[Rfam]
RNA: SAM-I/IV (S-adenosyl methionine) riboswitch aptamer
Organism: Roseibium aquae
RNA sequence: GUCCAUCAUCAAGAGAAGGGCUGGCGCCCUCGCCAACCUGCCGACCGGGCAAGGUGGUUUCCGCACCAGGGAUGCGGUCUUUUCGUGCAUCCGCGAAAAGACAACGAAGCGGUUCCGA
Numbered sequence: 001g002u003c004c005a006u007c008a009u010c011a012a013g014a015g016a017a018g019g020g021c022u023g024g025c026g027c028c029c030u031c032g033c034c035a036a037c038c039u040g041c042c043g044a045c046c047g048g049g050c051a052a053g054g055u056g057g058u059u060u061c062c063g064c065a066c067c068a069g070g071g072a073u074g075c076g077g078u079c080u081u082u083u084c085g086u087g088c089a090u091c092c093g094c095g096a097a098a099a100g101a102c103a104a105c106g107a108a109g110c111g112g113u114u115c116c117g118a
Stems, first nucleotide, its partner, number of pairs: 007074004015031001017030005032058003037054003040050003044114001046112001077102011